[Rfam]
This 50-nucleotide RNA sequence from Azoarcus indigens belongs to the Rfam family "Guanidine-II riboswitch aptamer (mini-ykkC)". The family's consensus secondary structure is taken from published work. The organism belongs to Azoarcus, within Bacteria. The family has 72 seed sequences and 1,589 matches in Rfam 15.1. Simpler in structure and has fewer highly conserved nucleotide positions than the ykkC-yxkD leader. Despite this each of its two stem-loop structures directly bind free guanidine. Therefore, mini-ykkC RNA motif represents a distinct class of guanidine-sensing RNAs. Its crystal structure was also determined.

RNA sequence: GCAGGAGGACGACCUCCCCCACUCCGGGAAAAACGUCCGGGACGGCCCGG
Numbered sequence: 001g002c003a004g005g006a007g008g009a010c011g012a013c014c015u016c017c018c019c020c021a022c023u024c025c026g027g028g029a030a031a032a033a034c035g036u037c038c039g040g041g042a043c044g045g046c047c048c049g050g
Stems, first nucleotide, its partner, number of pairs: 001020001004017005037050005